[Rfam]
RNA: mir-10 microRNA precursor family
Organism: Zootermopsis nevadensis
RNA sequence: CGAUCUGAACCCGUAGAUCCGAACUUGUGUAACUGUGGGUCACAAGCUCGAUUCUAUGGAUCUAGGUAGC
Numbered sequence: 001c002g003a004u005c006u007g008a009a010c011c012c013g014u015a016g017a018u019c020c021g022a023a024c025u026u027g028u029g030u031a032a033c034u035g036u037g038g039g040u041c042a043c044a045a046g047c048u049c050g051a052u053u054c055u056a057u058g059g060a061u062c063u064a065g066g067u068a069g070c
Stems, first nucleotide, its partner, number of pairs: 003067005011059002015055003020050003024046006